Background:
The family of this 71-nucleotide sequence from Cinclus mexicanus is "Small nucleolar RNA SNORD99". The base pairs follow the family's consensus structure, which was predicted with RNAalifold. It is annotated as a C/D-box small nucleolar RNA.
[Rfam]
RNA sequence: CCUGGUCCAUGAUGAUUCCCGAGUCUGGAGACUUCUGGAUGAGUCCUGCGGAUAUGGGGCUGAGGCCAGGC
Dot-bracket structure: (((((............................................................))))).
The literature on the family includes a 2001 paper in EMBO J by Huttenhofer et al., "RNomics: an experimental approach that identifies 201 candidates for novel, small, non-messenger RNAs in mouse". Lineage of the source: Eukaryota > Euteleostomi > Archelosauria > Theropoda > Cinclus.